[Rfam]
RNA sequence: AAAGUGGCCUAUGCAACGGCCAUGGACUGGUUCAUUGCUGUGUGUUUUGCUUUC
Dot-bracket structure: .((..(((..(.((.(((((.(((((....))))).)))))..)))..))))).